Overview
Rfam assigns this 80-nucleotide RNA from Hermetia illucens to the family "drz-agam-1 ribozyme". A reference for the family is Webb et al. (2009), "Widespread occurrence of self-cleaving ribozymes", Science.
[Rfam]
RNA sequence: CAACUACCAAACCCUAUCUCCACCUCCAUGCGGUGAUCGCUGGGAGUUCAUUCUUUAUGAAAAACUGCUGACGGAGAAGG
Numbered sequence: 001c002a003a004c005u006a007c008c009a010a011a012c013c014c015u016a017u018c019u020c021c022a023c024c025u026c027c028a029u030g031c032g033g034u035g036a037u038c039g040c041u042g043g044g045a046g047u048u049c050a051u052u053c054u055u056u057a058u059g060a061a062a063a064a065c066u067g068c069u070g071a072c073g074g075a076g077a078a079g080g
Stems, first nucleotide, its partner, number of pairs: 013080003017076001019074002022034003045066002047061005
Pairs were carried over by alignment from the consensus structure, which is taken from published work. Its family is annotated with catalytic activity in the Gene Ontology.